[Rfam]
RNA sequence: CGAAUACUUUGGCAAAACCAGUGAAAAUUGGUGACGCAAAGCUUUUAGUCUAAAGUGGUUUCCGCUAUGAUUGCCAGGCUGCAAAU
Numbered sequence: 001c002g003a004a005u006a007c008u009u010u011g012g013c014a015a016a017a018c019c020a021g022u023g024a025a026a027a028u029u030g031g032u033g034a035c036g037c038a039a040a041g042c043u044u045u046u047a048g049u050c051u052a053a054a055g056u057g058g059u060u061u062c063c064g065c066u067a068u069g070a071u072u073g074c075c076a077g078g079c080u081g082c083a084a085a086u
Stems, first nucleotide, its partner, number of pairs: 012037002017032006040080004045076001048071003055065004

Overview: Rfam assigns this 86-nucleotide RNA from Parasporobacterium paucivorans to the family "c-di-GMP-I riboswitch aptamer". Rfam links the family to the GO term cyclic-di-GMP binding. Rfam's curators write: GEMM was predicted in a large-scale screen for bacterial structured RNA regulatory elements. Genes associated with GEMM are involved in a diverse array of functions, including chemotaxis regulation, signal transduction, secretion and chitin. The base pairs follow the family's consensus structure, which is taken from published work. It scores 60 bits against the family's covariance model.